[Rfam]
RNA: Polynucleobacter-1 RNA
RNA sequence: GGGCAGUGACACCCAGUCGUUAUGUCACCCUAAAGCUGGACUUAGAGUCGCAGUCAUGGAAAUUCUGGGCGGUAGCAGAGACUUGUAUUCACCAUCCUUUACAGGACGCCAUUAGCCUUGCUGACUAAUAUGAAUCAAGU
Numbered sequence: 001g002g003g004c005a006g007u008g009a010c011a012c013c014c015a016g017u018c019g020u021u022a023u024g025u026c027a028c029c030c031u032a033a034a035g036c037u038g039g040a041c042u043u044a045g046a047g048u049c050g051c052a053g054u055c056a057u058g059g060a061a062a063u064u065c066u067g068g069g070c071g072g073u074a075g076c077a078g079a080g081a082c083u084u085g086u087a088u089u090c091a092c093c094a095u096c097c098u099u100u101a102c103a104g105g106a107c108g109c110c111a112u113u114a115g116c117c118u119u120g121c122u123g124a125c126u127a128a129u130a131u132g133a134a135u136c137a138a139g140u
Base pairs, nucleotide, nucleotide: 006028007027008026009025010024036053037052038051039049040048041047042046064079065078066077067076084137085136088134089133090132096105097104111129112128113127114126115125